[Rfam]
RNA sequence: AACACCUCUCCCGACCUGACACAACGUCCUGCUGCGAUGUUGUCCGACCUGCAGUGUCACAUGUCGGCGGAGGUGUU
Numbered sequence: 001a002a003c004a005c006c007u008c009u010c011c012c013g014a015c016c017u018g019a020c021a022c023a024a025c026g027u028c029c030u031g032c033u034g035c036g037a038u039g040u041u042g043u044c045c046g047a048c049c050u051g052c053a054g055u056g057u058c059a060c061a062u063g064u065c066g067g068c069g070g071a072g073g074u075g076u077u
Base pairs, nucleotide, nucleotide: 001077002076003075004074005073006072007071011067012066013065014064015063023041024040025039026038027037028036046058047057048056
Overview
The record is a 77-nucleotide RNA from Fusarium verticillioides, which matches "bZIP non canonical Hac1/Xbp1 intron" in Rfam. The literature on the family includes a 2011 paper in RNA Biol by Hooks and Griffiths-Jones, "Conserved RNA structures in the non-canonical Hac1/Xbp1 intron". Rfam 15.1 lists 1,325 matches to the family in 1,320 species. The sequence is in the family's curated seed alignment. Pairs were carried over by alignment from the consensus structure, which was predicted with RNAfold.